A member of the RNA family "Flavo-1 RNA" from Flavobacterium faecale, 86 nucleotides long. The match comes from Rfam's covariance-model search (63 bits).
RNA sequence: AACUCCCCGCAUUAGGGAUCGCAGCGGCAUCCUUUUUUGGGGCUUUUUCUGCCCCAAAAAAGAUAUAGCGAAGAGCCCGACCGAAG
Numbered sequence: 001a002a003c004u005c006c007c008c009g010c011a012u013u014a015g016g017g018a019u020c021g022c023a024g025c026g027g028c029a030u031c032c033u034u035u036u037u038u039g040g041g042g043c044u045u046u047u048u049c050u051g052c053c054c055c056a057a058a059a060a061a062g063a064u065a066u067a068g069c070g071a072a073g074a075g076c077c078c079g080a081c082c083g084a085a086g
Stems, first nucleotide, its partner, number of pairs: 015078003019074002024069002029064003035059008
The source organism's lineage runs through Bacteria, Pseudomonadati, Flavobacteriia, Flavobacteriales and Flavobacterium.